Rfam assigns this 51-nucleotide RNA to the family "Streptococcus sRNA SpF59 (ldcC RNA)". The base pairs follow the family's consensus structure, which was predicted with mfold. For this family Rfam cites "Control of virulence by small RNAs in Streptococcus pneumoniae" (Mann et al., PLoS Pathog, 2012). It is annotated as a small RNA.
RNA sequence: UGACACCCAGUACAGGGUUCAGGCCACACGGACAGCCGGGUCAACUGCCGA
Numbered sequence: 001u002g003a004c005a006c007c008c009a010g011u012a013c014a015g016g017g018u019u020c021a022g023g024c025c026a027c028a029c030g031g032a033c034a035g036c037c038g039g040g041u042c043a044a045c046u047g048c049c050g051a
Stems, first nucleotide, its partner, number of pairs: 001043004005018004